[Rfam]
This 377-nucleotide part of an RNA from Veillonella sp. oral taxon 780 belongs to the Rfam family "Bacterial large subunit ribosomal RNA". Lineage of the source: Bacteria > Bacillati > Bacillota > Veillonellales > Veillonella sp. oral taxon 780. The base pairs follow the family's consensus structure, which is taken from published work. On this family, see Yusupov et al., Science 2001: "Crystal structure of the ribosome at 5.5 A resolution".
RNA sequence: GAAAAGAAAGGUGAGAAUCCUUUCCACCGAAAGCCUAAGGGUUCCUGAGCAACGAUCGUCGUCUCAGGGUAAGUCGGGACCUAAGCCGAGGCGGAAAAGCAUAGGCGAUGGACAACAGGUUGAAAUUCCUGUACUAGUAUGAAUUGUUUGAUCGAUGGAGUGACGCAAACAGGUAGGUUAGCAUGCGAUUGGAAGUGCAUGUUUAAGCGUGUAGGUUGAGUAAUAGGUAAAUCCGUUACUCUAAAAGCUGAGGCGUGAUGACGAGCUCAAAAGAGCGAAGUAAUUGAUCCUAAGUUGCCGAGAAAAGCUUCUAGGUAGAGACAUACUACCCGUACCAAAACCGACACAGGUAGGCGGGGAGAGAAUCCUAAGGUGCG
Numbered sequence: 001g002a003a004a005a006g007a008a009a010g011g012u013g014a015g016a017a018u019c020c021u022u023u024c025c026a027c028c029g030a031a032a033g034c035c036u037a038a039g040g041g042u043u044c045c046u047g048a049g050c051a052a053c054g055a056u057c058g059u060c061g062u063c064u065c066a067g068g069g070u071a072a073g074u075c076g077g078g079a080c081c082u083a084a085g086c087c088g089a090g091g092c093g094g095a096a097a098a099g100c101a102u103a104g105g106c107g108a109u110g111g112a113c114a115a116c117a118g119g120u121u122g123a124a125a126u127u128c129c130u131g132u133a134c135u136a137g138u139a140u141g142a143a144u145u146g147u148u149u150g151a152u153c154g155a156u157g158g159a160g161u162g163a164c165g166c167a168a169a170c171a172g173g174u175a176g177g178u179u180a181g182c183a184u185g186c187g188a189u190u191g192g193a194a195g196u197g198c199a200u201g202u203u204u205a206a207g208c209g210u211g212u213a214g215g216u217u218g219a220g221u222a223a224u225a226g227g228u229a230a231a232u233c234c235g236u237u238a239c240u241c242u243a244a245a246a247g248c249u250g251a252g253g254c255g256u257g258a259u260g261a262c263g264a265g266c267u268c269a270a271a272a273g274a275g276c277g278a279a280g281u282a283a284u285u286g287a288u289c290c291u292a293a294g295u296u297g298c299c300g301a302g303a304a305a306a307g308c309u310u311c312u313a314g315g316u317a318g319a320g321a322c323a324u325a326c327u328a329c330c331c332g333u334a335c336c337a338a339a340a341c342c343g344a345c346a347c348a349g350g351u352a353g354g355c356g357g358g359g360a361g362a363g364a365a366u367c368c369u370a371a372g373g374u375g376c377g
Stems, first nucleotide, its partner, number of pairs: 006024006025375004033355004039336002044068006053061002075332004080111002085106003089102001091100002115132005135328007144319002153315001157311005165298004171291003176285005181202006203261002207256004214249003218241007226234002265276004341350002357369004